[Rfam]
Shown here is a 155-nucleotide sequence from Populus deltoides, a member of the family "MIR2912 microRNA precursor family". Rfam links the family to the GO terms miRNA-mediated post-transcriptional gene silencing and RISC complex. The source organism's lineage runs through Eukaryota, Streptophytina, Tracheophyta, Gunneridae and Populus.
RNA sequence: UCUAGAACUCAAGAUAUGGGCUAAACACUGAAUAGUGUCUAGGCUGCAGGACAGAUUCUGACUUCUUCAUUGUUGCUACAGUUGGGACUUGAAAAUGACCUUUUUAAAUCUUGGACCCCCAUGAAAGUUUUAGGCCUAUGUAUUAGCUUUCCAUC
Number, nucleotide and partner (000 for none) at each position: 001u000002c000003u153004a000005g151006a150007a149008c146009u145010c000011a144012a143013g000014a141015u140016a139017u138018g137019g136020g135021c133022u132023a131024a130025a129026c000027a128028c127029u126030g000031a000032a000033u000034a000035g122036u121037g120038u000039c000040u000041a000042g118043g117044c000045u115046g000047c000048a112049g111050g110051a109052c000053a000054g105055a104056u000057u000058c000059u000060g099061a000062c000063u097064u000065c000066u000067u000068c000069a000070u000071u000072g088073u087074u086075g000076c000077u000078a000079c000080a000081g000082u000083u000084g000085g000086g074087a073088c072089u000090u000091g000092a000093a000094a000095a000096u000097g063098a000099c060100c000101u000102u000103u000104u055105u054106a000107a000108a000109u051110c050111u049112u048113g000114g000115a045116c000117c043118c042119c000120c037121a036122u035123g000124a000125a000126a029127g028128u027129u025130u024131u023132a022133g021134g000135c020136c019137u018138a017139u016140g015141u014142a000143u012144u011145a009146g008147c000148u000149u007150u006151c005152c000153a003154u000155c000